Record summary:
Shown here is a 432-nucleotide part of an RNA from Clavispora lusitaniae, a member of the family "Eukaryotic large subunit ribosomal RNA". Lineage of the source: Eukaryota > Fungi > Metschnikowiaceae > Clavispora > Clavispora lusitaniae.
[Rfam]
RNA sequence: GGUAGUAGCAAAUAUUCAAAUGGGAACUUUGAAGACUGAAGUGGGGAAAGGUUCCAUGUCAACAGCAGAUGGACAUGGGUGAGUCGAUCCUAAGAGCUAAGGUAGUUCUGACUGAACAGCUUCUUUGCGAAGUGUGCUCGAAAGGGAAUCCGGUUAAGAUUCCGGAACUUGGAUGCGGAACUACACGGCAACGUAACUGAAUGCGGAGACGCCGGCGUGGGCCCUGGGAGGAGUUUUCUUUUUCUUCUAACAGCCUGUGACCCUGGAAUUGGAUUAUCCGGAGAGGGGGUUUUGUGGCUGGAAGAGCGCGGCAUCUUCGCCGCGUCCGGUGCGCCUACGACGGUCCUUGAAAAUCCGCAGGAAGCAAUUGUUUUCGCGCCAAGUCGUACUGAUAACCGCAGCAGGUCUCCAAGGUUAACAGCCUCUAGUUGA
Numbered sequence: 001g002g003u004a005g006u007a008g009c010a011a012a013u014a015u016u017c018a019a020a021u022g023g024g025a026a027c028u029u030u031g032a033a034g035a036c037u038g039a040a041g042u043g044g045g046g047a048a049a050g051g052u053u054c055c056a057u058g059u060c061a062a063c064a065g066c067a068g069a070u071g072g073a074c075a076u077g078g079g080u081g082a083g084u085c086g087a088u089c090c091u092a093a094g095a096g097c098u099a100a101g102g103u104a105g106u107u108c109u110g111a112c113u114g115a116a117c118a119g120c121u122u123c124u125u126u127g128c129g130a131a132g133u134g135u136g137c138u139c140g141a142a143a144g145g146g147a148a149u150c151c152g153g154u155u156a157a158g159a160u161u162c163c164g165g166a167a168c169u170u171g172g173a174u175g176c177g178g179a180a181c182u183a184c185a186c187g188g189c190a191a192c193g194u195a196a197c198u199g200a201a202u203g204c205g206g207a208g209a210c211g212c213c214g215g216c217g218u219g220g221g222c223c224c225u226g227g228g229a230g231g232a233g234u235u236u237u238c239u240u241u242u243u244c245u246u247c248u249a250a251c252a253g254c255c256u257g258u259g260a261c262c263c264u265g266g267a268a269u270u271g272g273a274u275u276a277u278c279c280g281g282a283g284a285g286g287g288g289g290u291u292u293u294g295u296g297g298c299u300g301g302a303a304g305a306g307c308g309c310g311g312c313a314u315c316u317u318c319g320c321c322g323c324g325u326c327c328g329g330u331g332c333g334c335c336u337a338c339g340a341c342g343g344u345c346c347u348u349g350a351a352a353a354u355c356c357g358c359a360g361g362a363a364g365c366a367a368u369u370g371u372u373u374u375c376g377c378g379c380c381a382a383g384u385c386g387u388a389c390u391g392a393u394a395a396c397c398g399c400a401g402c403a404g405g406u407c408u409c410c411a412a413g414g415u416u417a418a419c420a421g422c423c424u425c426u427a428g429u430u431g432a
Base pairs, nucleotide, nucleotide: 015033016032017031018030019029020028034430035429036428037427043410044409045408046407049390050389054078055077056076057075058074059073063071064070085386086385087384089145090144094139095138096112098110100109101108102107119133120132121131149166150165151164152163153162169382170381171380172379174378175377176376177375178374179372180371185194186193187192202359203358204357205356206355207354211344212343213342214341216339217338218337219336220335221334222333224329225328226327227247228246229245230244231243232242251300252299253298254297255296260290261289262288263287264286269281270280271279272278307324308323309322310321311320312319396405397404412424413423414422415421